[Rfam]
RNA sequence: GAGAGUAUUGUUUAAAGGUAAAACAGUUGUCUUUUAAGCAACCCAUGCUGGUUCGAAUCCAGCUAUUCUCA
Numbered sequence: 001g002a003g004a005g006u007a008u009u010g011u012u013u014a015a016a017g018g019u020a021a022a023a024c025a026g027u028u029g030u031c032u033u034u035u036a037a038g039c040a041a042c043c044c045a046u047g048c049u050g051g052u053u054c055g056a057a058u059c060c061a062g063c064u065a066u067u068c069u070c071a
Stems, first nucleotide, its partner, number of pairs: 001070007010024004026042005047063005
Dot-bracket structure: (((((((..((((.......)))).(((((.......)))))....(((((.......)))))))))))).
Overview
The record is a 71-nucleotide RNA sequence from Nakaseomyces glabratus, which matches "tRNA" in Rfam. Lineage of the source: Eukaryota > Opisthokonta > Ascomycota > Saccharomycetales > Nakaseomyces. It is one of the family's seed sequences. Rfam links the family to the GO term triplet codon-amino acid adaptor activity. The base pairs follow the family's consensus structure, which is taken from published work.